[Rfam]
RNA sequence: CUGCUGUGAUGGGAAUAUUUUUCGUCAACAGCAUCGCCCUGUGCGCGUGGUGACAGCGUUGGGCUGAGCAG
Numbered sequence: 001c002u003g004c005u006g007u008g009a010u011g012g013g014a015a016u017a018u019u020u021u022u023c024g025u026c027a028a029c030a031g032c033a034u035c036g037c038c039c040u041g042u043g044c045g046c047g048u049g050g051u052g053a054c055a056g057c058g059u060u061g062g063g064c065u066g067a068g069c070a071g
Stems, first nucleotide, its partner, number of pairs: 002070003008026004
Small nucleolar RNA SNORD56: a 71-nucleotide RNA sequence from Geococcyx californianus. The match comes from Rfam's covariance-model search (41 bits). The family's consensus secondary structure was predicted with PFOLD. The organism belongs to Geococcyx, within Eukaryota.